mir-9242 microRNA precursor family: a 64-nucleotide RNA sequence from Cnephaeus nilssonii. NCBI's taxonomy places the organism under Eukaryota, Dipnotetrapodomorpha, Amniota, Mammalia, Cnephaeus.
[Rfam]
RNA sequence: GACCACCCUCUGUGGGGCGAUUGAUGGGGGGGCUCCAUGAUCGAUUGCCCCACAGAGGGAGGCC
Numbered sequence: 001g002a003c004c005a006c007c008c009u010c011u012g013u014g015g016g017g018c019g020a021u022u023g024a025u026g027g028g029g030g031g032g033c034u035c036c037a038u039g040a041u042c043g044a045u046u047g048c049c050c051c052a053c054a055g056a057g058g059g060a061g062g063c064c
Stems, first nucleotide, its partner, number of pairs: 001064001003062002006059020027038001029036002

Description
Gene Ontology terms of the family: RISC complex and miRNA-mediated post-transcriptional gene silencing.